[Rfam]
RNA sequence: AGAUGAGCGGAACCUUACUCCUCCUCCCAGAGGUUCUGCACCAGAGCAGCGGCACUCCUCCUCCCAGCCGUUACUCAUCAGUUCAAGAAGCCUGCCGCACCUCCUCCCGCGGCAGGCUUUUUGC
Dot-bracket structure: ......((.(((((((.............))))))).))....(((.((((((.............)))))).)))...........(((((((((((..........))))))))))).....
A member of the RNA family "Alphaproteobacterial ar14" from Neorhizobium alkalisoli, 124 nucleotides long. The source organism's lineage runs through Bacteria, Alphaproteobacteria, Hyphomicrobiales, Rhizobiaceae and Neorhizobium. Pairs were carried over by alignment from the consensus structure. About the family: Smr14C2 was renamed NfeR1 (Nodule Formation Efficiency RNA) highly expressed in salt stress and during the symbiotic interaction on legume roots. By type it is a small RNA. Gene Ontology term of the family: biological process involved in symbiotic interaction.